This 204-nucleotide sequence from Yamadazyma tenuis belongs to the Rfam family "Small nucleolar RNA snR43". Clan: SNORA9 clan. The family's consensus secondary structure is taken from published work.
[Rfam]
RNA sequence: AACUCCUGUUUCUGCCCCAUAUUCUUUAUUCUUCUAUGGAUUGAUGGGUUCUGAUGAUGGAGAAGAAAAAGCUUUGCACCAAAUCUUGAACGCUUGAUACUUGUUCUUGAUUUGUUGUAUUGAUCGUGUGGUUAGACUUUGAAUCCGUGGAUGGCAGUGCAGUACUAUCGUUAUUGUAAUGCCUGAUCGGUCUCCACUAUAUGU
Dot-bracket structure: ..((((.........((((((.(((............))).)).))))..........)))).........(..((((.((((((..((((...........))))..)))))).))))..).....((((..(((((..............((((..(...((.((....)).)))..)))).....))))))))).......